[Rfam]
This 297-nucleotide RNA from Colius striatus belongs to the Rfam family "Metazoan signal recognition particle RNA". Its family is annotated with SRP-dependent cotranslational protein targeting to membrane, signal sequence recognition and signal recognition particle, endoplasmic reticulum targeting in the Gene Ontology. It is annotated as a non-coding RNA gene. A search with the family's covariance model found it, with a score of 200 bits. Rfam 15.1 lists 383,523 matches to the family in 1,221 species. From the family's description: The signal recognition particle (SRP) is a universally conserved ribonucleoprotein.
RNA sequence: CCUGAGUGGUGGCACACCCCUGUAGUCCCAGCUACUUGGGAGGCUGAGCCCACCGGGUCGCUGAGCCCAGGGGUUCUGGGCUGCAGUGCGCUAUGCCGAGGGGGUGUCCAUGCUAAGGCUGGCAUCAAUAUGGUGAGCCAUGGGGAGCCGAGGCACACCAAGUUGACUAAGGAGGGGUGAACUGGCCCAGGUUGGAGACGGAGCAGGUCAAAGCUCCCGUGCUGGUCAGUAGCAGGAUCAUGCCUGUGAAUAGCCACUGCAGCGUAGCCUGGGCAACACAGAGAGACACAGGUUCCU
Numbered sequence: 001c002c003u004g005a006g007u008g009g010u011g012g013c014a015c016a017c018c019c020c021u022g023u024a025g026u027c028c029c030a031g032c033u034a035c036u037u038g039g040g041a042g043g044c045u046g047a048g049c050c051c052a053c054c055g056g057g058u059c060g061c062u063g064a065g066c067c068c069a070g071g072g073g074u075u076c077u078g079g080g081c082u083g084c085a086g087u088g089c090g091c092u093a094u095g096c097c098g099a100g101g102g103g104g105u106g107u108c109c110a111u112g113c114u115a116a117g118g119c120u121g122g123c124a125u126c127a128a129u130a131u132g133g134u135g136a137g138c139c140a141u142g143g144g145g146a147g148c149c150g151a152g153g154c155a156c157a158c159c160a161a162g163u164u165g166a167c168u169a170a171g172g173a174g175g176g177g178u179g180a181a182c183u184g185g186c187c188c189a190g191g192u193u194g195g196a197g198a199c200g201g202a203g204c205a206g207g208u209c210a211a212a213g214c215u216c217c218c219g220u221g222c223u224g225g226u227c228a229g230u231a232g233c234a235g236g237a238u239c240a241u242g243c244c245u246g247u248g249a250a251u252a253g254c255c256a257c258u259g260c261a262g263c264g265u266a267g268c269c270u271g272g273g274c275a276a277c278a279c280a281g282a283g284a285g286a287c288a289c290a291g292g293u294u295c296c297u
Stems, first nucleotide, its partner, number of pairs: 001043002004019001006017003026041003046295005058284002061281002065274007076267003080263009090254005096248001100247001102245006108236002111234005117227009126165004131160005137154003141150003167171001174217005183210005192201003
Dot-bracket structure: ((.(.(((......))).)......(((..........)))))..(((((.......((.((..(((((((....(((.(((((((((.(((((.(...(.((((((((.(((((.(((((((((((((.(((((.(((.(((....))).))).))))).)))).(...)..(((((....(((((....(((....)))....)))))..))))).)))))))))..)))))))...)))))).)).)))))))))))))).)))))))))).....)).))......)))))..